[Rfam]
RNA sequence: GGGCGAUGAUGACAGUAUUACAUUUCUCGAUCCUGAAUAUGAAUAUUUUCGUAAUAUUCAUGGACCAGUAGCAAAGUAUCAGUUAUGAACUUUGCUCUUUGAUGACUGCGUUUGUGCGUGUCUGAGCCUU
Numbered sequence: 001g002g003g004c005g006a007u008g009a010u011g012a013c014a015g016u017a018u019u020a021c022a023u024u025u026c027u028c029g030a031u032c033c034u035g036a037a038u039a040u041g042a043a044u045a046u047u048u049u050c051g052u053a054a055u056a057u058u059c060a061u062g063g064a065c066c067a068g069u070a071g072c073a074a075a076g077u078a079u080c081a082g083u084u085a086u087g088a089a090c091u092u093u094g095c096u097c098u099u100u101g102a103u104g105a106c107u108g109c110g111u112u113u114g115u116g117c118g119u120g121u122c123u124g125a126g127c128c129u130u
Base pairs, nucleotide, nucleotide: 001129002128003127004126

small nucleolar RNA snoR126: a 130-nucleotide sequence from Trema orientale. Taxonomically the source falls in Trema (Eukaryota, Viridiplantae, Mesangiospermae, Rosales). Gene Ontology terms of the family: RNA processing and nucleolus. It is annotated as a C/D-box small nucleolar RNA.